The record is a 114-nucleotide RNA from Sporomusa ovata, which matches "PyrR binding site" in Rfam. A reference for the family is Bonner et al. (2001), "Molecular recognition of pyr mRNA by the Bacillus subtilis attenuation regulatory protein PyrR", Nucleic Acids Res. It scores 57 bits against the family's covariance model. The family's RNA type in Rfam is cis-regulatory element. The base pairs follow the family's consensus structure, which is taken from published work. Rfam links the family to the GO terms pyrimidine nucleobase transport and pyrimidine nucleobase biosynthetic process. The organism belongs to Sporomusa, within Bacteria. About the family: This family represents the PyrR binding site and terminator structure. This RNA structure is found upstream of a variety of genes involved in pyrimidine biosynthesis and transport. The alignment also includes a portion of the antiterminator structure.
[Rfam]
RNA sequence: CUAUCCUUUAAAAUGAUCCUGAGAGGUCGGCAAGGAUGUUGGUAGCUGUUUGUGCUUAUUGGCAUGGCUAUGAAAUAACUCCUUGCGCUAUUUUGGCAAGGAGUUUUCUUUAUA
Numbered sequence: 001c002u003a004u005c006c007u008u009u010a011a012a013a014u015g016a017u018c019c020u021g022a023g024a025g026g027u028c029g030g031c032a033a034g035g036a037u038g039u040u041g042g043u044a045g046c047u048g049u050u051u052g053u054g055c056u057u058a059u060u061g062g063c064a065u066g067g068c069u070a071u072g073a074a075a076u077a078a079c080u081c082c083u084u085g086c087g088c089u090a091u092u093u094u095g096g097c098a099a100g101g102a103g104u105u106u107u108c109u110u111u112a113u114a
Stems, first nucleotide, its partner, number of pairs: 003037006014029005047070002050067007073109001075107001077105010